[Rfam]
RNA sequence: UAAGGCAGUCGGAUAGCUGCGCCGGAACAGGUUUUCGGUGAGGAAAGUCCGGGCUUCAAGAGAACAAGGCACCAGAUAACGUCUGGCUGGAGCAAUCCAAGGGAAAGUGCCGCAGAGAUAUACCGCCGGGCUAAAUGUCCGGUAAGGGUGAAAAGGCGAGGUAAGAGCUCACCGCAGGACCGGUAACGGUUCUGGCAAGGUAAACCCUGUCUGAUGCAAGACCAAGUUAGGGGUGUUCAAGUGCCGGGCUUCGGCUUUGCAAACUGAACAACAACGGAGCGUUCUCUCUCCACUCCAGAGGUAGGUCGCAACGAGCCGCGCAGCGAUGUUCGGCCCAGAUGAAUAGCUAUCGUUCCGGACUUUGCGUUAUGCGUAAAGCUGCCGGAAUACAGAACCCGGCUUAUAGAUUGCCUUAUAAU
Number, nucleotide and partner (000 for none) at each position: 001u415002a414003a413004g412005g411006c410007a409008g408009u407010c406011g404012g351013a350014u349015a348016g347017c346018u345019g000020c040021g039022c038023c037024g036025g035026a034027a033028c000029a000030g000031g000032u000033u027034u026035u025036c024037g023038g022039u021040g020041a000042g000043g000044a000045a402046a401047g400048u000049c399050c398051g397052g396053g395054c216055u000056u214057c213058a000059a000060g000061a000062g284063a283064a282065c281066a000067a212068g211069g210070c209071a208072c086073c085074a084075g083076a082077u000078a000079a000080c000081g000082u076083c075084u074085g073086g072087c101088u099089g098090g097091a096092g000093c000094a000095a000096u091097c090098c089099a088100a000101g087102g207103g206104a000105a000106a000107g205108u204109g201110c200111c199112g000113c000114a000115g000116a000117g000118a000119u000120a000121u000122a000123c147124c146125g143126c142127c141128g140129g139130g138131c137132u000133a000134a000135a000136u000137g131138u130139c129140c128141g127142g126143u125144a000145a000146g124147g123148g000149u000150g000151a000152a000153a000154a000155g173156g172157c000158g170159a169160g168161g000162u000163a000164a000165g000166a000167g000168c160169u159170c158171a000172c156173c155174g196175c194176a193177g192178g191179a190180c189181c188182g187183g000184u000185a000186a000187c182188g181189g180190u179191u178192c177193u176194g175195g000196c174197a000198a000199g111200g110201u109202a000203a000204a108205c107206c103207c102208u071209g070210u069211c068212u067213g057214a056215u000216g054217c000218a000219a000220g307221a306222c305223c304224a000225a000226g000227u000228u000229a000230g296231g295232g294233g293234u292235g291236u000237u000238c000239a000240a000241g000242u000243g000244c000245c000246g000247g000248g000249c000250u000251u000252c000253g000254g000255c000256u000257u000258u000259g000260c000261a000262a000263a000264c000265u000266g000267a000268a000269c000270a000271a000272c000273a000274a000275c000276g289277g288278a287279g286280c000281g065282u064283u063284c062285u000286c279287u278288c277289u276290c000291c235292a234293c233294u232295c231296c230297a000298g000299a000300g000301g000302u000303a000304g223305g222306u221307c220308g000309c000310a000311a000312c000313g000314a000315g334316c333317c332318g331319c000320g329321c328322a327323g000324c000325g000326a000327u322328g321329u320330u000331c318332g317333g316334c315335c000336c000337a000338g000339a000340u000341g000342a000343a000344u000345a018346g017347c016348u015349a014350u013351c012352g000353u000354u000355c000356c000357g000358g000359a000360c000361u000362u000363u000364g000365c000366g000367u000368u000369a000370u000371g000372c000373g000374u000375a000376a000377a000378g000379c000380u000381g000382c000383c000384g000385g000386a000387a000388u000389a000390c000391a000392g000393a000394a000395c053396c052397c051398g050399g049400c047401u046402u045403a000404u011405a000406g010407a009408u008409u007410g006411c005412c004413u003414u002415a001416u000417a000418a000419u000
The family of this 419-nucleotide sequence from Proteobacteria bacterium CAG:495 is "Bacterial RNase P class A".
Lineage of the source: Bacteria > Pseudomonadati > Pseudomonadota.
The match comes from Rfam's covariance-model search (272 bits).
Pairs were carried over by alignment from the consensus structure, which is taken from published work.
Rfam classes the family as a ribozyme.